[Rfam]
RNA sequence: GUGUAGAAUGUUCUGGAACGAUGCAUUACGUGGAUCUUGAAAAGCGGGGCAAAAAUGGAGUGAGUAAAGCUACUAUUGCUCUCUUCAGAAUCAAUUAGUUUGCUUGGGUUUUGACUAAGUCCCUAGCAAACCGGCAAGUCACAGAACGGCAUGGACUCAUGCUAGAGUCCU
Numbered sequence: 001g002u003g004u005a006g007a008a009u010g011u012u013c014u015g016g017a018a019c020g021a022u023g024c025a026u027u028a029c030g031u032g033g034a035u036c037u038u039g040a041a042a043a044g045c046g047g048g049g050c051a052a053a054a055a056u057g058g059a060g061u062g063a064g065u066a067a068a069g070c071u072a073c074u075a076u077u078g079c080u081c082u083c084u085u086c087a088g089a090a091u092c093a094a095u096u097a098g099u100u101u102g103c104u105u106g107g108g109u110u111u112u113g114a115c116u117a118a119g120u121c122c123c124u125a126g127c128a129a130a131c132c133g134g135c136a137a138g139u140c141a142c143a144g145a146a147c148g149g150c151a152u153g154g155a156c157u158c159a160u161g162c163u164a165g166a167g168u169c170c171u
Base pairs, nucleotide, nucleotide: 057086058085059084098131099130100129101128102127103126154169155168156167157166158165
Rfam assigns this 171-nucleotide RNA sequence from Handroanthus impetiginosus to the family "Early nodulin 40". It is annotated as a non-coding RNA gene. Pairs were carried over by alignment from the consensus structure, which is taken from published work. On this family, see Gultyaev and Roussis, Nucleic Acids Res 2007: "Identification of conserved secondary structures and expansion segments in enod40 RNAs reveals new enod40 homologues in plants". Rfam links the family to the GO term nodulation.